[Rfam]
The family of this 102-nucleotide sequence from Ureibacillus sinduriensis is "Purine riboswitch aptamer".
A reference for the family is Reining et al. (2013), "Three-state mechanism couples ligand and temperature sensing in riboswitches", Nature.
RNA sequence: UGAGUAAAUUAAAUAAUUCGUCGUAUAAUGUCGAGAAUAUGGCUCGUGAGUUUCUACCAAGCUACCUUAAAUAGCUUGACUACGAUUUUUAAUGUAUUAGUA
Numbered sequence: 001u002g003a004g005u006a007a008a009u010u011a012a013a014u015a016a017u018u019c020g021u022c023g024u025a026u027a028a029u030g031u032c033g034a035g036a037a038u039a040u041g042g043c044u045c046g047u048g049a050g051u052u053u054c055u056a057c058c059a060a061g062c063u064a065c066c067u068u069a070a071a072u073a074g075c076u077u078g079a080c081u082a083c084g085a086u087u088u089u090u091a092a093u094g095u096a097u098u099a100g101u102a
Stems, first nucleotide, its partner, number of pairs: 020086006029049001032046004058078007